Record summary
A member of the RNA family "A. fumigatus snoRNA Afu_263" from Aspergillus oryzae, 96 nucleotides long. On this family, see Jochl et al., Nucleic Acids Res 2008: "Small ncRNA transcriptome analysis from Aspergillus fumigatus suggests a novel mechanism for regulation of protein synthesis". The family is grouped with related families in Rfam's "SNORD77 clan". The source organism's lineage runs through Eukaryota, saccharomyceta, Pezizomycotina, Aspergillus and Aspergillus oryzae. It is one of the family's seed sequences. Rfam classes the family as a C/D-box small nucleolar RNA.
[Rfam]
RNA sequence: UUUUAUGAUGAUCACCAUAAGUUAUAAGCAUAGUUCACCUGAGGUCUUCGGACCGUUGAACGACAACCUUAUACCAUCUUUCACCUUUGUCUGAUA
Numbered sequence: 001u002u003u004u005a006u007g008a009u010g011a012u013c014a015c016c017a018u019a020a021g022u023u024a025u026a027a028g029c030a031u032a033g034u035u036c037a038c039c040u041g042a043g044g045u046c047u048u049c050g051g052a053c054c055g056u057u058g059a060a061c062g063a064c065a066a067c068c069u070u071a072u073a074c075c076a077u078c079u080u081u082c083a084c085c086u087u088u089g090u091c092u093g094a095u096a
Stems, first nucleotide, its partner, number of pairs: 006020001008018003033061005043054004